RNA sequence: AGUUCAUUCGUUUUUAUCAGUAAUCCCAUCAGAUGUUGAUAAAAGUUAAUGAGUACAAAAUGGCUCACCAACGUAUCGUUUCGCAGUGCUGGACACCGAAGCGAUACGUUUUUUU
Numbered sequence: 001a002g003u004u005c006a007u008u009c010g011u012u013u014u015u016a017u018c019a020g021u022a023a024u025c026c027c028a029u030c031a032g033a034u035g036u037u038g039a040u041a042a043a044a045g046u047u048a049a050u051g052a053g054u055a056c057a058a059a060a061u062g063g064c065u066c067a068c069c070a071a072c073g074u075a076u077c078g079u080u081u082c083g084c085a086g087u088g089c090u091g092g093a094c095a096c097c098g099a100a101g102c103g104a105u106a107c108g109u110u111u112u113u114u115u
Stems, first nucleotide, its partner, number of pairs: 002054007010046013070110014086096003
RNA: 23S methyl RNA motif